RNA sequence: CUUAAAGUUUUAUAGGGUUCCGUAGUUUAAAAUAACUAGUCUGGUUCAAGAUAAAACGCACAGUAUACUGUGUUCACGGAAGGAUAAAAUCCUAGAAGAU
Numbered sequence: 001c002u003u004a005a006a007g008u009u010u011u012a013u014a015g016g017g018u019u020c021c022g023u024a025g026u027u028u029a030a031a032a033u034a035a036c037u038a039g040u041c042u043g044g045u046u047c048a049a050g051a052u053a054a055a056a057c058g059c060a061c062a063g064u065a066u067a068c069u070g071u072g073u074u075c076a077c078g079g080a081a082g083g084a085u086a087a088a089a090u091c092c093u094a095g096a097a098g099a100u
Stems, first nucleotide, its partner, number of pairs: 007057006015047002020044002022041001023038005058073006075095001077098001081093003
A member of the RNA family "Guanidine-I riboswitch aptamer" from Clostridium tyrobutyricum, 100 nucleotides long. Pairs were carried over by alignment from the consensus structure. The organism belongs to Clostridium tyrobutyricum, within Bacteria.